[Rfam]
Overview:
A member of the RNA family "Vertebrate telomerase RNA" from Pleuronectes platessa, 372 nucleotides long.
RNA sequence: UCCGGGUGCGGGGUGUCAUUUCUAACCCUAAAUCAGCGCGGCCUCCUGUACUUGACGUUCGCUGUUUUCUCUUCUCUGGCUUUCAGGGAACUACAGGAGGUUUGUUGUUCUCCGGAUUGACACGUCUACCACCUAGACGCUCUUAAAAAAAGAAAAAAAAAGCCAAGAUGGUCACUCCGCCUCGUUCAGUGUCCCGACAGAAGCACCGUGAACGUGCCGCCGUGGUCAGCCCUGCUGCCGCGAAGAGUUGGUCUCUGCUGCUCCGGUGUCUUCGUGUCGGGAGUCUUCCCCAAACUGAGCAGAGCAAAGCUGAGCAGGGCGACUCUGCCACAUCUACAGUGGUGUGGCCAGGAAGCUCCGGCUCACACACAU
Numbered sequence: 001u002c003c004g005g006g007u008g009c010g011g012g013g014u015g016u017c018a019u020u021u022c023u024a025a026c027c028c029u030a031a032a033u034c035a036g037c038g039c040g041g042c043c044u045c046c047u048g049u050a051c052u053u054g055a056c057g058u059u060c061g062c063u064g065u066u067u068u069c070u071c072u073u074c075u076c077u078g079g080c081u082u083u084c085a086g087g088g089a090a091c092u093a094c095a096g097g098a099g100g101u102u103u104g105u106u107g108u109u110c111u112c113c114g115g116a117u118u119g120a121c122a123c124g125u126c127u128a129c130c131a132c133c134u135a136g137a138c139g140c141u142c143u144u145a146a147a148a149a150a151a152g153a154a155a156a157a158a159a160a161a162g163c164c165a166a167g168a169u170g171g172u173c174a175c176u177c178c179g180c181c182u183c184g185u186u187c188a189g190u191g192u193c194c195c196g197a198c199a200g201a202a203g204c205a206c207c208g209u210g211a212a213c214g215u216g217c218c219g220c221c222g223u224g225g226u227c228a229g230c231c232c233u234g235c236u237g238c239c240g241c242g243a244a245g246a247g248u249u250g251g252u253c254u255c256u257g258c259u260g261c262u263c264c265g266g267u268g269u270c271u272u273c274g275u276g277u278c279g280g281g282a283g284u285c286u287u288c289c290c291c292a293a294a295c296u297g298a299g300c301a302g303a304g305c306a307a308a309g310c311u312g313a314g315c316a317g318g319g320c321g322a323c324u325c326u327g328c329c330a331c332a333u334c335u336a337c338a339g340u341g342g343u344g345u346g347g348c349c350a351g352g353a354a355g356c357u358c359c360g361g362c363u364c365a366c367a368c369a370c371a372u
Stems, first nucleotide, its partner, number of pairs: 003184004008180008042100005057091004062086003075168003078164003081160003185299006192282008203269006221242005227237004244256004312364004317358004323352001326350002328347001331344004

Telomerase is a ribonucleoprotein reverse transcriptase that synthesises telomeric DNA. Telomerase RNAs differ greatly in sequence and structure between vertebrates, ciliates and yeasts, but they share a 5' pseudoknot structure close to the template sequence. Vertebrate telomerase RNAs have a 3' H/ACA snoRNA-like domain. It scores 102 bits against the family's covariance model. The source organism's lineage runs through Eukaryota, Metazoa, Eurypterygia, Acanthomorphata and Pleuronectes. It is annotated as a non-coding RNA gene. The family is grouped with related families in Rfam's "Telomerase clan".